[Rfam]
RNA sequence: GCUCGCUGCCCUCGGGCAUUUCCUCCCACGACUUGCACCCGGUCCGCUUCGGCGGGCCGGGUUCUUUUUGCGUUUGA
Numbered sequence: 001g002c003u004c005g006c007u008g009c010c011c012u013c014g015g016g017c018a019u020u021u022c023c024u025c026c027c028a029c030g031a032c033u034u035g036c037a038c039c040c041g042g043u044c045c046g047c048u049u050c051g052g053c054g055g056g057c058c059g060g061g062u063u064c065u066u067u068u069u070g071c072g073u074u075u076g077a
Stems, first nucleotide, its partner, number of pairs: 008017003037062009
A member of the RNA family "Makes More Granules Regulator RNA (mmgR)" from Enterovirga rhinocerotis, 77 nucleotides long. Pairs were carried over by alignment from the consensus structure. By type it is a small RNA. The source organism's lineage runs through Bacteria, Pseudomonadota, Hyphomicrobiales, Methylobacteriaceae and Enterovirga. The match comes from Rfam's covariance-model search (46 bits). From the family's description: SuhB later renamed mmgR (makes more granules regulator) was a putative non-coding RNA found multiple times in the Agrobacterium tumefaciens genome and related alpha-proteobacteria.